[Rfam]
Rfam assigns this 267-nucleotide RNA from Lysinibacillus composti to the family "Bacterial large signal recognition particle RNA". The organism belongs to Lysinibacillus, within Bacteria. By type it is a non-coding RNA gene.
RNA sequence: UCGUACUAGGUGGGGAGGUAGCGGUGCCCUAUAACUCGCAAUCCGCUCUAGCGAGACUGAAGUCCUUAUCUGAGGCUGUACGCAUGUAAGGCCUGCCUUUUGCACGUAGUGUUGACGGUUGGGUCCUGCGCAAUGAAUACCCAUGAACCAUGUCAGGUCCGGAAGGAAGCAGCAUUAAGUGGAACCAUUCAUGUGCCGCGGGGUAGCCUAGCCUGAGCUGGCGACAAAAGUAACGCUUAUGUUCGGCAGUCAAAGUGAGGUGUACGG
Numbered sequence: 001u002c003g004u005a006c007u008a009g010g011u012g013g014g015g016a017g018g019u020a021g022c023g024g025u026g027c028c029c030u031a032u033a034a035c036u037c038g039c040a041a042u043c044c045g046c047u048c049u050a051g052c053g054a055g056a057c058u059g060a061a062g063u064c065c066u067u068a069u070c071u072g073a074g075g076c077u078g079u080a081c082g083c084a085u086g087u088a089a090g091g092c093c094u095g096c097c098u099u100u101u102g103c104a105c106g107u108a109g110u111g112u113u114g115a116c117g118g119u120u121g122g123g124u125c126c127u128g129c130g131c132a133a134u135g136a137a138u139a140c141c142c143a144u145g146a147a148c149c150a151u152g153u154c155a156g157g158u159c160c161g162g163a164a165g166g167a168a169g170c171a172g173c174a175u176u177a178a179g180u181g182g183a184a185c186c187a188u189u190c191a192u193g194u195g196c197c198g199c200g201g202g203g204u205a206g207c208c209u210a211g212c213c214u215g216a217g218c219u220g221g222c223g224a225c226a227a228a229a230g231u232a233a234c235g236c237u238u239a240u241g242u243u244c245g246g247c248a249g250u251c252a253a254a255g256u257g258a259g260g261u262g263u264a265c266g267g
Base pairs, nucleotide, nucleotide: 001267002266003265004264005263006262009058010057011056012030013029014028015027017025019023035055036054037053038052039051064260065259066258070255071254074251075250076249077248078247081245082244084242085241086240087239088238089237090236094232095231098229099228100227101226102225106222107221108219109218110217117213118212119211120210121209122208123207124206125202126201127200128199129198130197131193132192134191135190136189137188138187141182142181143180144179150175151174152173153172158167159166160165